[Rfam]
RNA sequence: CAGUGGGAGACAGUCCCACCGGGGCAAUAGUCAGGACCCCGUAGCUUGGGUUGCAUUCGCGGAGGAAACGAAGCGGAUGAAGCCAACUGACAAAGCCAUCCUCGGGAUGGUGAGCGAGUCACCGGGCCGCAACGGAA
Numbered sequence: 001c002a003g004u005g006g007g008a009g010a011c012a013g014u015c016c017c018a019c020c021g022g023g024g025c026a027a028u029a030g031u032c033a034g035g036a037c038c039c040c041g042u043a044g045c046u047u048g049g050g051u052u053g054c055a056u057u058c059g060c061g062g063a064g065g066a067a068a069c070g071a072a073g074c075g076g077a078u079g080a081a082g083c084c085a086a087c088u089g090a091c092a093a094a095g096c097c098a099u100c101c102u103c104g105g106g107a108u109g110g111u112g113a114g115c116g117a118g119u120c121a122c123c124g125g126g127c128c129g130c131a132a133c134g135g136a137a
Base pairs, nucleotide, nucleotide: 020041021040022039023038024037049088050087051086052085053084054079055078056077057076058075059074064069095111096110097109098108099107100106114130115129116128
A member of the RNA family "Group II catalytic intron D1-D4-4" from a Bryobacteraceae bacterium, 137 nucleotides long.
The family has 90 seed sequences and 840 matches in Rfam 15.1.
A reference for the family is Bonen and Vogel (2001), "The ins and outs of group II introns", Trends Genet.
Rfam describes the family as follows. Group II introns are found in rRNA, tRNA and mRNA of organelles in fungi, plants and protists, and also in mRNA in bacteria.
The source organism's lineage runs through Bacteria, Pseudomonadati, Acidobacteriota, Terriglobia and Bryobacteraceae.